[Rfam]
RNA sequence: GAUGAAUAUACGCUUAAUUUCCAACCGUUCCGUUGGAAAGCGGGGGAACCAAUCUUUGGGGCGAAUCGAACGGCGUUGAUGCCGUCCGUAGGGUACCAUCUACCCGAGUCCGUCAGCUAACCUCGUCAGCAGAAGGUGGGUCAGC
Numbered sequence: 001g002a003u004g005a006a007u008a009u010a011c012g013c014u015u016a017a018u019u020u021c022c023a024a025c026c027g028u029u030c031c032g033u034u035g036g037a038a039a040g041c042g043g044g045g046g047a048a049c050c051a052a053u054c055u056u057u058g059g060g061g062c063g064a065a066u067c068g069a070a071c072g073g074c075g076u077u078g079a080u081g082c083c084g085u086c087c088g089u090a091g092g093g094u095a096c097c098a099u100c101u102a103c104c105c106g107a108g109u110c111c112g113u114c115a116g117c118u119a120a121c122c123u124c125g126u127c128a129g130c131a132g133a134a135g136g137u138g139g140g141u142c143a144g145c
Stems, first nucleotide, its partner, number of pairs: 012130003018039008040126006050058002059111003067088002070085004091105004
RNA: c-di-AMP riboswitch aptamer (ydaO/yuaA leader)